[Rfam]
RNA: Vault RNA
Organism: Branchiostoma lanceolatum
RNA sequence: GUGCUGGCUUAGUCGUGUGGGUACUUCGUAAACUUAACAUUUACAGUGCAAGUGCACACGCAAAGGACGCGGGUUCGAAUCCCGCACCCCUUCAGACCCACUGACGCCAUCCAGCACUUUU
Number, nucleotide and partner (000 for none) at each position: 001g000002u116003g115004c114005u113006g112007g111008c000009u000010u000011a000012g105013u104014c103015g102016u000017g101018u100019g099020g098021g000022u000023a000024c000025u079026u078027c077028g076029u000030a000031a000032a000033c000034u000035u000036a000037a000038c000039a000040u000041u000042u000043a000044c000045a000046g000047u000048g000049c000050a000051a000052g000053u000054g000055c000056a000057c000058a000059c000060g000061c000062a000063a000064a000065g000066g000067a000068c000069g000070c000071g000072g000073g000074u000075u000076c028077g027078a026079a025080u000081c000082c000083c000084g000085c000086a000087c000088c000089c000090c000091u000092u000093c000094a000095g000096a000097c000098c020099c019100a018101c017102u015103g014104a013105c012106g000107c000108c000109a000110u000111c007112c006113a005114g004115c003116a002117c000118u000119u000120u000121u000